A member of the RNA family "TD-1 RNA" from Treponema phagedenis, 138 nucleotides long.
NCBI's taxonomy places the organism under Bacteria, Spirochaetia, Treponematales, Treponemataceae, Treponema.
Clan: TD (Treponema denticola) motifs.
RNA sequence: GUUCACCGGCGAGUUUUGCUUUCUUAUUUGACAUGCAAAACAUCGCAUAUUGUAUGUGCUUUUUCAGGCUUCGCCUUACAAAAGCACUUAAAAAAAUAUUUUCGGAAUCUGAUGAUUCCUCAAAUUUUUUUUAUGGAG
Numbered sequence: 001g002u003u004c005a006c007c008g009g010c011g012a013g014u015u016u017u018g019c020u021u022u023c024u025u026a027u028u029u030g031a032c033a034u035g036c037a038a039a040a041c042a043u044c045g046c047a048u049a050u051u052g053u054a055u056g057u058g059c060u061u062u063u064u065c066a067g068g069c070u071u072c073g074c075c076u077u078a079c080a081a082a083a084g085c086a087c088u089u090a091a092a093a094a095a096a097u098a099u100u101u102u103c104g105g106a107a108u109c110u111g112a113u114g115a116u117u118c119c120u121c122a123a124a125u126u127u128u129u130u131u132u133a134u135g136g137a138g
Stems, first nucleotide, its partner, number of pairs: 011044002013041007056087008091132006098125004104119006